[Rfam]
Nucleotides: 084
Stems, first nucleotide, its partner, number of pairs: 001083001003081005009075003013071008021062002024059008034049002037045002
Number, partner (000 for none) and nucleotide at each position: 001083c002000c003081a004080g005079u006078g007077u008000c009075c010074u011073g012000a013071u014070c015069c016068u017067g018066g019065a020064c021062c022061u023000u024059g025058a026057c027056u028055a029054u030053g031052a032000a033000a034049c035048a036000a037045u038044u039000c040000u041000a042000a043000a044038a045037a046000a047000a048035u049034g050000c051000a052031u053030c054029a055028u056027a057026g058025u059024c060000c061022a062021g063000u064020g065019u066018c067017c068016a069015g070014g071013g072000a073011c074010a075009g076000u077007g078006c079005a080004c081003u082000c083001g084000g